Shown here is an 84-nucleotide sequence from Domibacillus epiphyticus, a member of the family "c-di-GMP-I riboswitch aptamer".
About the family: GEMM was predicted in a large-scale screen for bacterial structured RNA regulatory elements.
Taxonomically the source falls in Domibacillus (Bacteria, Bacillota, Bacilli, Bacillaceae).
RNA sequence: AUAAUGAAAAGGCAAAUCUAUAGAAAUGUAGAGACGCAAAACUAUAGGGGCUACGCCUUCCAGGUAUGCCAGCCAGUUAUCGAA
Numbered sequence: 001a002u003a004a005u006g007a008a009a010a011g012g013c014a015a016a017u018c019u020a021u022a023g024a025a026a027u028g029u030a031g032a033g034a035c036g037c038a039a040a041a042c043u044a045u046a047g048g049g050g051c052u053a054c055g056c057c058u059u060c061c062a063g064g065u066a067u068g069c070c071a072g073c074c075a076g077u078u079a080u081c082g083a084a
Stems, first nucleotide, its partner, number of pairs: 012037002017032006040078004047074002049070003056064003